Nucleotides: 070
Base pairs, nucleotide, nucleotide: 001056002055003054004053005052006051007050008049011022012021013020028046029045030044031043032042036070037069038068039067040066041065
Number, partner (000 for none) and nucleotide at each position: 001056g002055c003054c004053a005052u006051g007050c008049c009000u010000a011022g012021a013020g014000c015000g016000g017000c018000c019000a020013c021012u022011c023000g024000a025000a026000a027000a028046c029045c030044g031043g032042g033000c034000a035000a036070c037069c038068c039067u040066u041065a042032c043031c044030c045029g046028g047000c048000u049008g050007g051006c052005a053004u054003g055002g056001u057000u058000u059000c060000c061000g062000a063000a064000u065041u066040a067039a068038g069037g070036g

A member of the RNA family "int-alpA RNA" from Noviherbaspirillum autotrophicum, 70 nucleotides long.
The organism belongs to Noviherbaspirillum, within Bacteria.
Acidobacteria (1 example), Planctomycetes (1 example), Proteobacteria.
The base pairs follow the family's consensus structure, which is taken from published work.
It is annotated as a small RNA.
A search with the family's covariance model found it, with a score of 63 bits.